mir-9223 microRNA precursor family: a 73-nucleotide RNA from Myotis brandtii.
The match comes from Rfam's covariance-model search (67 bits).
Lineage of the source: Eukaryota > Opisthokonta > Sarcopterygii > Laurasiatheria > Myotis.

RNA sequence: GGCAGUUCUCGGGUGAUGCACCAGAACUGGGUUCCCUCCUCUCUGGUUCCGGGUAUGUCAUCCGAGAACCGCA
Numbered sequence: 001g002g003c004a005g006u007u008c009u010c011g012g013g014u015g016a017u018g019c020a021c022c023a024g025a026a027c028u029g030g031g032u033u034c035c036c037u038c039c040u041c042u043c044u045g046g047u048u049c050c051g052g053g054u055a056u057g058u059c060a061u062c063c064g065a066g067a068a069c070c071g072c073a
Base pairs, nucleotide, nucleotide: 002072003071005069006068007067008066009065010064011063012062013061014060015059016058017057020054021053022052024049025048026047027046028045029044030043031042